This 98-nucleotide sequence from Stappia albiluteola belongs to the Rfam family "Bacterial small signal recognition particle RNA". By type it is a non-coding RNA gene. Rfam describes the family as follows. The signal recognition particle (SRP) is a universally conserved ribonucleoprotein involved in the co-translational targeting of proteins to membranes.
RNA sequence: GGAGGUUGGUGGUGGACGAGCCACUCGCCAACCGGGUCAGGUCCGGAAGGAAGCAGCCCCAACGAGUCGCGGCACGGGUCAUCGUGCCAGCCUCCCGC
Dot-bracket structure: ...(((((((((((..((.((((((((......((((....(((....)))....))))...)))))...))).))...))))))..)))))......
Numbered sequence: 001g002g003a004g005g006u007u008g009g010u011g012g013u014g015g016a017c018g019a020g021c022c023a024c025u026c027g028c029c030a031a032c033c034g035g036g037u038c039a040g041g042u043c044c045g046g047a048a049g050g051a052a053g054c055a056g057c058c059c060c061a062a063c064g065a066g067u068c069g070c071g072g073c074a075c076g077g078g079u080c081a082u083c084g085u086g087c088c089a090g091c092c093u094c095c096c097g098c
Stems, first nucleotide, its partner, number of pairs: 004092005009085006017076002020073003023067005034059004042051003